[Rfam]
RNA sequence: UGCAAGUAUUUUACGAUUAAGAUUCAAUUGUCUCUUGUAUAGAUCAUGUAUAAAUUU
Numbered sequence: 001u002g003c004a005a006g007u008a009u010u011u012u013a014c015g016a017u018u019a020a021g022a023u024u025c026a027a028u029u030g031u032c033u034c035u036u037g038u039a040u041a042g043a044u045c046a047u048g049u050a051u052a053a054a055u056u057u
Stems, first nucleotide, its partner, number of pairs: 018037005025030001
Shown here is a 57-nucleotide RNA from Beta vulgaris, a member of the family "Plastid-rps18 3UTR RNA". The match comes from Rfam's covariance-model search (75 bits). By type it is a cis-regulatory element. From the family's description: Plastid rps18 is a non-coding RNA (ncRNA) present in plastids. Lineage of the source: Eukaryota > Euphyllophyta > eudicotyledons > Caryophyllales > Beta vulgaris. The family's consensus secondary structure was predicted with LocARNA.